[Rfam]
The record is a 106-nucleotide sequence from Capsicum annuum, which matches "Plant small nucleolar RNA R71" in Rfam. A search with the family's covariance model found it, with a score of 47 bits. Its family is annotated with nucleolus and RNA processing in the Gene Ontology. The source organism's lineage runs through Eukaryota, Streptophyta, Euphyllophyta, Capsiceae and Capsicum. It is annotated as a C/D-box small nucleolar RNA.
RNA sequence: ACCUCAUGGUUAGGACAUUGCAUAAGAUUUCCAUUAAAUCUCUCCCAUACCUCAUAUAGAGGCUCUCUAUUCAAUUAACAAAAGUUUGUAAUUUUGUCAUGUAAUU
Numbered sequence: 001a002c003c004u005c006a007u008g009g010u011u012a013g014g015a016c017a018u019u020g021c022a023u024a025a026g027a028u029u030u031c032c033a034u035u036a037a038a039u040c041u042c043u044c045c046c047a048u049a050c051c052u053c054a055u056a057u058a059g060a061g062g063c064u065c066u067c068u069a070u071u072c073a074a075u076u077a078a079c080a081a082a083a084g085u086u087u088g089u090a091a092u093u094u095u096g097u098c099a100u101g102u103a104a105u106u
Base pairs, nucleotide, nucleotide: 001106004103005101006100057074060071